[Rfam]
RNA sequence: UGCUUAUAGAGAAAGACGGAGGGAUUAGACCCUGCGAUGUCUUAGCAACCUGUGCAAACAAGGUGCUACAUUCUAUCCAAUCACGAUAGUUAUCGGAACGGAAAAGAUAAGUG
Dot-bracket structure: (((((((.....(((((...(((..[[[[)))......)))))((((.(((((....))).))))))...(]]]](((.....................)))..).)))))))